Rfam assigns this 74-nucleotide RNA sequence from Indicator maculatus to the family "Small nucleolar RNA SNORD18". Rfam classes the family as a C/D-box small nucleolar RNA. Clan: SNORD18 clan. The base pairs follow the family's consensus structure, which was predicted with PFOLD.

RNA sequence: CCAAAAUGAUGAGAUUCCACUUCAUUGGUCCGUGUUUCUGAGACACAUGAUAUAACAGUGGAAAUUCUGAUUGG
Numbered sequence: 001c002c003a004a005a006a007u008g009a010u011g012a013g014a015u016u017c018c019a020c021u022u023c024a025u026u027g028g029u030c031c032g033u034g035u036u037u038c039u040g041a042g043a044c045a046c047a048u049g050a051u052a053u054a055a056c057a058g059u060g061g062a063a064a065u066u067c068u069g070a071u072u073g074g
Stems, first nucleotide, its partner, number of pairs: 001074004